[Rfam]
RNA: glmS glucosamine-6-phosphate activated ribozyme aptamer
RNA sequence: UUUAAAUUUAAAGCGCCAGGACUUAAGUGGAGUUUUAAAUCUGUGGCAAUAAACGGAUUUUGAAUGAAACUUCGCUAAUGCGGAGUAAGUUUGCCUAGACCAAAUCAUAGAUUUGGAGGCUCACUCAAGUUGACGAGGAUGGGGAGUAUCGAAUCUUCGGCGGGUGCCCCACGGUAUCGCACUACCGUUAACGGCUUAUAAAAUCUAAAAGUGAUUUUAGGCACAAAAUAAGCUAGGUGUUAAAA
Number, nucleotide and partner (000 for none) at each position: 001u000002u000003u000004a000005a000006a000007u000008u000009u000010a000011a000012a000013g000014c000015g000016c000017c000018a000019g000020g131021a130022c129023u128024u127025a000026a125027g124028u000029g122030g000031a000032g000033u000034u000035u000036u000037a000038a000039a000040u000041c000042u000043g000044u000045g000046g000047c000048a000049a000050u000051a000052a000053a000054c000055g000056g000057a000058u000059u000060u000061u000062g000063a000064a000065u000066g000067a000068a000069a000070c000071u000072u000073c000074g000075c000076u000077a000078a000079u000080g000081c000082g000083g000084a000085g000086u000087a000088a000089g000090u000091u000092u000093g000094c000095c000096u000097a000098g000099a000100c000101c000102a000103a000104a000105u000106c000107a000108u000109a000110g000111a000112u000113u000114u000115g000116g000117a000118g000119g000120c000121u000122c029123a000124c027125u026126c000127a024128a023129g022130u021131u020132g000133a000134c000135g000136a000137g000138g000139a000140u171141g170142g169143g168144g167145a000146g000147u000148a000149u160150c159151g158152a157153a000154u000155c000156u000157u152158c151159g150160g149161c000162g000163g000164g000165u000166g000167c144168c143169c142170c141171a140172c187173g186174g185175u184176a183177u000178c000179g000180c000181a000182c000183u176184a175185c174186c173187g172188u000189u000190a000191a000192c000193g234194g233195c232196u231197u230198a000199u000200a000201a000202a000203a000204u221205c220206u219207a218208a217209a216210a215211g000212u000213g000214a000215u210216u209217u208218u207219a206220g205221g204222c000223a000224c000225a000226a000227a000228a000229u000230a197231a196232g195233c194234u193235a000236g000237g000238u000239g000240u000241u000242a000243a000244a000245a000